c-di-GMP-I riboswitch aptamer: a 90-nucleotide RNA sequence from Desulfuromonas sp. AOP6.
Gene Ontology term of the family: cyclic-di-GMP binding.
The family's consensus secondary structure is taken from published work.
It scores 53 bits against the family's covariance model.
RNA sequence: CCGCCGAAAACGCAAAGCCCGAGCAAUCUGGUGACGCAAAGCCACGGAUCCUUCUCAUCCUUUCGAGGCAAGGACCGCCGGGCUGCCGAA
Numbered sequence: 001c002c003g004c005c006g007a008a009a010a011c012g013c014a015a016a017g018c019c020c021g022a023g024c025a026a027u028c029u030g031g032u033g034a035c036g037c038a039a040a041g042c043c044a045c046g047g048a049u050c051c052u053u054c055u056c057a058u059c060c061u062u063u064c065g066a067g068g069c070a071a072g073g074a075c076c077g078c079c080g081g082g083c084u085g086c087c088g089a090a
Stems, first nucleotide, its partner, number of pairs: 012037002017032003021028002040084004045080003049074002056068001
Dot-bracket structure: ...........((...(((.((....)).)))...))..((((.(((.((.....(...........)....))...)))))))......